The family of this 84-nucleotide RNA from Anabarilius grahami is "mir-221 microRNA precursor family". Taxonomically the source falls in Anabarilius (Eukaryota, Cypriniphysae, Cypriniformes, Cyprinoidei). The match comes from Rfam's covariance-model search (69 bits). Gene Ontology terms of the family: miRNA-mediated post-transcriptional gene silencing and RISC complex.
[Rfam]
RNA sequence: GCGACUCUGAACCUGGCAUACAGUGUAGAGAUCUGUGUUUGUCAAGUUACAGCUACAUUGUCUGCUGGGUUUCAGAGUCACUUC
Numbered sequence: 001g002c003g004a005c006u007c008u009g010a011a012c013c014u015g016g017c018a019u020a021c022a023g024u025g026u027a028g029a030g031a032u033c034u035g036u037g038u039u040u041g042u043c044a045a046g047u048u049a050c051a052g053c054u055a056c057a058u059u060g061u062c063u064g065c066u067g068g069g070u071u072u073c074a075g076a077g078u079c080a081c082u083u084c
Base pairs, nucleotide, nucleotide: 013068014067015066016065017064018063020061021060022059023058024057025056026055027054028053033052034051035050036049